Description:
This 76-nucleotide RNA from Durio zibethinus belongs to the Rfam family "MIR473 microRNA precursor family". The source organism's lineage runs through Eukaryota, Spermatophyta, Magnoliopsida, Malvales and Durio. Pairs were carried over by alignment from the consensus structure, which was predicted with WAR. For this family Rfam cites "Novel and mechanical stress-responsive MicroRNAs in Populus trichocarpa that are absent from Arabidopsis" (Lu et al., Plant Cell, 2005). Its family is annotated with RISC complex and miRNA-mediated post-transcriptional gene silencing in the Gene Ontology.

Nucleotides: 076
Stems, first nucleotide, its partner, number of pairs: 006069010018057009
Number, partner (000 for none) and nucleotide at each position: 001000c002000u003000u004000u005000u006069u007068c008067a009066c010065u011064c012063u013062c014061u015060u016000u017000g018057a019056a020055a021054g022053g023052c024051u025050u026049c027000a028000a029000a030000c031000u032000a033000a034000a035000u036000u037000a038000a039000a040000u041000u042000a043000c044000a045000g046000u047000u048000c049026g050025a051024a052023g053022c054021c055020u056019u057018u058000a059000a060015a061014a062013g063012a064011g065010a066009g067008u068007g069006g070000a071000g072000a073000a074000a075000a076000g